Notes
The record is a 115-nucleotide RNA sequence from Roseburia sp. CAG:303, which matches "FMN riboswitch aptamer (RFN element)" in Rfam. Pairs were carried over by alignment from the consensus structure, which is taken from published work.
RNA sequence: AUAAUUUUUCAGGGCGGGGCGAAAAUCCCCACCGGUGGUAUAGCCCACGAGCCUUUUGGCAUGAUUUGGUGAGAUUCCAAAGCCGACAGUAUAGUCUGGAUGUGAGAAGAAUUUA
Numbered sequence: 001a002u003a004a005u006u007u008u009u010c011a012g013g014g015c016g017g018g019g020c021g022a023a024a025a026u027c028c029c030c031a032c033c034g035g036u037g038g039u040a041u042a043g044c045c046c047a048c049g050a051g052c053c054u055u056u057u058g059g060c061a062u063g064a065u066u067u068g069g070u071g072a073g074a075u076u077c078c079a080a081a082g083c084c085g086a087c088a089g090u091a092u093a094g095u096c097u098g099g100a101u102g103u104g105a106g107a108a109g110a111a112u113u114u115a
Base pairs, nucleotide, nucleotide: 003113004112005111006110007109008108009107010106017029018028019027031095032094033085034084035048036047037046038045043083044082053059065081066080067079068078069077087098088097089096
Dot-bracket structure: ..((((((((......(((.......))).[[((((((....[[))))....(.....).....(((((.......)))))]])).(((....]]))).......))))))))..